A member of the RNA family "Alphaproteobacterial ar15" from Aminobacter sp. MSH1, 116 nucleotides long. A search with the family's covariance model found it, with a score of 49 bits. Rfam 15.1 lists 316 matches to the family in 177 species. On this family, see Caswell et al., Mol Microbiol 2012: "Identification of two small regulatory RNAs linked to virulence in Brucella abortus 2308". The family's RNA type in Rfam is small RNA.
RNA sequence: AUCUCCAGGGCGCGUUCCUCCUCCCAUUAGCGCCCUCGAGUGUUCCCCUCUGGAGGUUAGCCUUAAUCGGCACUUCCAAACAAACUCAGCCGGAUCUUCUUGGAUCCGGCUUUUUU
Numbered sequence: 001a002u003c004u005c006c007a008g009g010g011c012g013c014g015u016u017c018c019u020c021c022u023c024c025c026a027u028u029a030g031c032g033c034c035c036u037c038g039a040g041u042g043u044u045c046c047c048c049u050c051u052g053g054a055g056g057u058u059a060g061c062c063u064u065a066a067u068c069g070g071c072a073c074u075u076c077c078a079a080a081c082a083a084a085c086u087c088a089g090c091c092g093g094a095u096c097u098u099c100u101u102g103g104a105u106c107c108g109g110c111u112u113u114u115u116u
Stems, first nucleotide, its partner, number of pairs: 001041001003040003007036003012033004051078007088111010